lysM-TM7 RNA: a 136-nucleotide RNA sequence from Candidatus Microsaccharimonas sossegonensis. A search with the family's covariance model found it, with a score of 98 bits. Pairs were carried over by alignment from the consensus structure, which is taken from published work. Lineage of the source: Bacteria > Candidatus Saccharimonadota > Candidatus Saccharimonadia > Saccharimonadales (SeqCode) > Candidatus Microsaccharimonas. The family's RNA type in Rfam is cis-regulatory element.

RNA sequence: GCCUACCAAAACGGUCGCACGGGUACCGAUAUUUAAGAAAUAAUACUAAUGACAUCGGUCGACAUGUACCCCUUUCCUGUGUGGAAGUAAGACUUAGUAAGGUAGUCGCCCUCGUAGUAAUACGGUGUGGCAGGAG
Numbered sequence: 001g002c003c004u005a006c007c008a009a010a011a012c013g014g015u016c017g018c019a020c021g022g023g024u025a026c027c028g029a030u031a032u033u034u035a036a037g038a039a040a041u042a043a044u045a046c047u048a049a050u051g052a053c054a055u056c057g058g059u060c061g062a063c064a065u066g067u068a069c070c071c072c073u074u075u076c077c078u079g080u081g082u083g084g085a086a087g088u089a090a091g092a093c094u095u096a097g098u099a100a101g102g103u104a105g106u107c108g109c110c111c112u113c114g115u116a117g118u119a120a121u122a123c124g125g126u127g128u129g130g131c132a133g134g135a136g
Base pairs, nucleotide, nucleotide: 003105004104005103006102007101013094014093015092016091021071022070023069024068025067026066074086075085076084077083108131109130110129112125113124114123115122116121